RNA sequence: GGACAAAGUCAACCCACUCGGAUCGUCCGGCACGUACCUGCCGGUGGGAAGGAAUA
Number, nucleotide and partner (000 for none) at each position: 001g000002g000003a000004c000005a000006a000007a000008g000009u000010c051011a000012a000013c048014c047015c046016a045017c000018u000019c000020g000021g000022a000023u000024c000025g000026u000027c044028c043029g042030g041031c040032a039033c000034g000035u000036a000037c000038c000039u032040g031041c030042c029043g028044g027045u016046g015047g014048g013049a000050a000051g010052g000053a000054a000055u000056a000
RNA: msiK RNA
Organism: Schaalia cardiffensis